Rfam assigns this 81-nucleotide RNA from Paenibacillus foliorum to the family "ZMP/ZTP riboswitch aptamer (pfl RNA motif)".
Its family is annotated with regulation of purine nucleotide biosynthetic process and one-carbon metabolic process in the Gene Ontology.

RNA sequence: AUGGGUAUGUGUAACUGGCGAUAACGUAGAAGACUACGAGGGAGCACAUAUAGGAUAUAGCCGUUCGCCUGGGCAAAGUAU
Numbered sequence: 001a002u003g004g005g006u007a008u009g010u011g012u013a014a015c016u017g018g019c020g021a022u023a024a025c026g027u028a029g030a031a032g033a034c035u036a037c038g039a040g041g042g043a044g045c046a047c048a049u050a051u052a053g054g055a056u057a058u059a060g061c062c063g064u065u066c067g068c069c070u071g072g073g074c075a076a077a078g079u080a081u
Stems, first nucleotide, its partner, number of pairs: 005051008015041002017069005026037004058076001060074003
The family's consensus secondary structure is taken from published work.